Rfam assigns this 85-nucleotide RNA sequence to the family "c-di-GMP-II-GAG riboswitch aptamer". On this family, see Weinberg et al., Proc Natl Acad Sci U S A 2017: "Bioinformatic analysis of riboswitch structures uncovers variant classes with altered ligand specificity".
RNA sequence: ACUCACGCGGGAGGCGAUGACGCGCGGUCCACAUCCCGGCCGCCCGGACCGCGCCGAGCCACUGGCGAGACCGCCCCGCGCCCGA
Numbered sequence: 001a002c003u004c005a006c007g008c009g010g011g012a013g014g015c016g017a018u019g020a021c022g023c024g025c026g027g028u029c030c031a032c033a034u035c036c037c038g039g040c041c042g043c044c045c046g047g048a049c050c051g052c053g054c055c056g057a058g059c060c061a062c063u064g065g066c067g068a069g070a071c072c073g074c075c076c077c078g079c080g081c082c083c084g085a
Base pairs, nucleotide, nucleotide: 002084006080007079008078009077010076011075013060014059015058022054023053024052025051026050027049028048029047038072039071041067042066043065044064